Shown here is a 388-nucleotide sequence from Sphingomonas sp. TF3, a member of the family "Bacterial RNase P class A". By type it is a ribozyme. The base pairs follow the family's consensus structure, which is taken from published work.
RNA sequence: CCAGAGGGUCGGGCGGCCGCGGGGUGCGUUAAGCACCGCGAGGAAAGUCCGGGCUCCGCGGAACGACGGUGCCGGGUAACGCCCGGCGGGGGCGACCCCAGGGACAGUGCCACAGAGAGCAGACCGCCGAUGUCCUCGUUCGAUGAAAAUCGGGCAAGGAACAGGCAAGGGUGAAAGGGUGCGGCAAGAGCGCACCGCGCGCCUGGUAACAGGGGCGGCAUGGCAAACCCCACCGGGAGCAAGAUCGAAUAGGGAUGGCAUAUGGGCCUCGUUCCGGCUCGUCAUCCGGGUUGAUUGCUUGAGGCGGCGUGCAAACGUCGUCCUAGAGGAAUGGUCGCCUAACCUCGCAAGAGGGGGACAGAACCCGGCUUACAGACCCUCUGGCGUU
Numbered sequence: 001c002c003a004g005a006g007g008g009u010c011g012g013g014c015g016g017c018c019g020c021g022g023g024g025u026g027c028g029u030u031a032a033g034c035a036c037c038g039c040g041a042g043g044a045a046a047g048u049c050c051g052g053g054c055u056c057c058g059c060g061g062a063a064c065g066a067c068g069g070u071g072c073c074g075g076g077u078a079a080c081g082c083c084c085g086g087c088g089g090g091g092g093c094g095a096c097c098c099c100a101g102g103g104a105c106a107g108u109g110c111c112a113c114a115g116a117g118a119g120c121a122g123a124c125c126g127c128c129g130a131u132g133u134c135c136u137c138g139u140u141c142g143a144u145g146a147a148a149a150u151c152g153g154g155c156a157a158g159g160a161a162c163a164g165g166c167a168a169g170g171g172u173g174a175a176a177g178g179g180u181g182c183g184g185c186a187a188g189a190g191c192g193c194a195c196c197g198c199g200c201g202c203c204u205g206g207u208a209a210c211a212g213g214g215g216c217g218g219c220a221u222g223g224c225a226a227a228c229c230c231c232a233c234c235g236g237g238a239g240c241a242a243g244a245u246c247g248a249a250u251a252g253g254g255a256u257g258g259c260a261u262a263u264g265g266g267c268c269u270c271g272u273u274c275c276g277g278c279u280c281g282u283c284a285u286c287c288g289g290g291u292u293g294a295u296u297g298c299u300u301g302a303g304g305c306g307g308c309g310u311g312c313a314a315a316c317g318u319c320g321u322c323c324u325a326g327a328g329g330a331a332u333g334g335u336c337g338c339c340u341a342a343c344c345u346c347g348c349a350a351g352a353g354g355g356g357g358a359c360a361g362a363a364c365c366c367g368g369c370u371u372a373c374a375g376a377c378c379c380u381c382u383g384g385c386g387u388u
Stems, first nucleotide, its partner, number of pairs: 001384010011373001012339007020040002023037005045371003049368005054239004062273004067235005072086005087101001088099004102230002107228002109224003124170002126166003131161001133159002178196006197219001198217003202213004243296004253287006264280005303322008
Taxonomically the source falls in Sphingomonas (Bacteria, Pseudomonadati, Pseudomonadota, Sphingomonadaceae).